This 167-nucleotide RNA from Triticum aestivum belongs to the Rfam family "MIR2118 microRNA precursor family". Rfam 15.1 lists 2,377 matches to the family in 45 species.
[Rfam]
RNA sequence: GCCGGGAAGAGGAAGAGAGAGUCUCUAAGAGCAUUGGGAAUAUGAUCAUGGAGGAAAGUCUGGAGCUUGAUUUCUCCUCCAGUAUCGGAGGUAGAGAUUUGCUUUAUGUUUUCCCGAUGCCUCCUAUUCCUAUCGAUCUUAGGUACGCCUUCCUCUUGCCACUGGCU
Numbered sequence: 001g002c003c004g005g006g007a008a009g010a011g012g013a014a015g016a017g018a019g020a021g022u023c024u025c026u027a028a029g030a031g032c033a034u035u036g037g038g039a040a041u042a043u044g045a046u047c048a049u050g051g052a053g054g055a056a057a058g059u060c061u062g063g064a065g066c067u068u069g070a071u072u073u074c075u076c077c078u079c080c081a082g083u084a085u086c087g088g089a090g091g092u093a094g095a096g097a098u099u100u101g102c103u104u105u106a107u108g109u110u111u112u113c114c115c116g117a118u119g120c121c122u123c124c125u126a127u128u129c130c131u132a133u134c135g136a137u138c139u140u141a142g143g144u145a146c147g148c149c150u151u152c153c154u155c156u157u158g159c160c161a162c163u164g165g166c167u
Stems, first nucleotide, its partner, number of pairs: 010157004015152003019148001021146001024143007032135001035132008044123002047119003051115001053114007